[Rfam]
RNA sequence: GCGGCGGAUGCAGGUGCGAACUACAAGUGCCGCGGGUUCGAAUCCCGCCCGCCGCGAGGCGGUAGCUCAGCCUGGUAGAGCAUCGUCACGUUCCACCGUUUCUUGCCGUCGCAGC
Numbered sequence: 001g002c003g004g005c006g007g008a009u010g011c012a013g014g015u016g017c018g019a020a021c022u023a024c025a026a027g028u029g030c031c032g033c034g035g036g037u038u039c040g041a042a043u044c045c046c047g048c049c050c051g052c053c054g055c056g057a058g059g060c061g062g063u064a065g066c067u068c069a070g071c072c073u074g075g076u077a078g079a080g081c082a083u084c085g086u087c088a089c090g091u092u093c094c095a096c097c098g099u100u101u102c103u104u105g106c107c108g109u110c111g112c113a114g115c
Stems, first nucleotide, its partner, number of pairs: 002111006013097004018093003024085001026083001032048005039075001049062005065081004

This 115-nucleotide RNA sequence from Montanilutibacter psychrotolerans belongs to the Rfam family "Y RNA-like".
The organism belongs to Montanilutibacter, within Bacteria.
In Deinococcus radiodurans Rsr is tethered via Y RNA to the exoribonuclease PNPase and channels single-stranded RNA into the PNPase cavity. Rsr and Y RNA enhance degradation of structured RNAs by PNPase. This role could be conserved, as Rsr and ncRNAs called YrlA and YrlB (Y RNA like) also associate with PNPase in an evolutionary distant bacterium Salmonella Typhimurium.
The family's RNA type in Rfam is small RNA.